The record is a 97-nucleotide sequence from Cajanus cajan, which matches "Small nucleolar RNA Z43" in Rfam. Its family is annotated with RNA processing and nucleolus in the Gene Ontology.
[Rfam]
RNA sequence: GGACAGUGACGAUUUCUGUGAUAGGUCUCGUUCGUCGUAAUUGGCCUUACCCGCCUUGCCGACCAUCCUGCUAUAUCACCACCCAUAUUCUGAGUCC
Numbered sequence: 001g002g003a004c005a006g007u008g009a010c011g012a013u014u015u016c017u018g019u020g021a022u023a024g025g026u027c028u029c030g031u032u033c034g035u036c037g038u039a040a041u042u043g044g045c046c047u048u049a050c051c052c053g054c055c056u057u058g059c060c061g062a063c064c065a066u067c068c069u070g071c072u073a074u075a076u077c078a079c080c081a082c083c084c085a086u087a088u089u090c091u092g093a094g095u096c097c
Stems, first nucleotide, its partner, number of pairs: 001097004043056001044052001